Rfam assigns this 72-nucleotide sequence from Xenopus laevis to the family "Small nucleolar RNA SNORD58". Taxonomically the source falls in Xenopus (Eukaryota, Craniata, Batrachia, Anura). Rfam describes the family as follows. snoRNA U58 is found in introns 1, 3 and 6 of the ribosomal protein RPL17 gene in humans. It scores 62 bits against the family's covariance model.
RNA sequence: CUGCGCUGAUGACUCUCUUAGGACACCUUUGGAAAUAAACCAUGAAAAUAACACUUGUAAUAACUGAGCAGU
Numbered sequence: 001c002u003g004c005g006c007u008g009a010u011g012a013c014u015c016u017c018u019u020a021g022g023a024c025a026c027c028u029u030u031g032g033a034a035a036u037a038a039a040c041c042a043u044g045a046a047a048a049u050a051a052c053a054c055u056u057g058u059a060a061u062a063a064c065u066g067a068g069c070a071g072u
Base pairs, nucleotide, nucleotide: 001071002070003069004068
Gene Ontology terms of the family: nucleolus and RNA processing. Clan: SNORD58 clan. The family's consensus secondary structure was predicted with PFOLD.